The family of this 76-nucleotide RNA from Propionispira arboris is "Glycine riboswitch aptamer". Its family is annotated with glycine biosynthetic process in the Gene Ontology. This family represents the bacterial glycine riboswitch. The match comes from Rfam's covariance-model search (52 bits).

[Rfam]
RNA sequence: AUGAAGAUAAUGGGAGAGCGAUUUUAGAAUCCGCCGAAGAUGUUAUGCUUUCAGGCAAAAGGACCGUUAUUGGACG
Number, nucleotide and partner (000 for none) at each position: 001a000002u000003g000004a000005a000006g071007a070008u069009a068010a067011u066012g065013g064014g000015a000016g000017a000018g000019c000020g031021a030022u029023u028024u000025u000026a000027g000028a023029a022030u021031c020032c000033g056034c055035c054036g052037a051038a000039g000040a050041u000042g048043u000044u000045a000046u000047g000048c042049u000050u040051u037052c036053a000054g035055g034056c033057a000058a000059a000060a000061g000062g000063a000064c013065c012066g011067u010068u009069a008070u007071u006072g000073g000074a000075c000076g000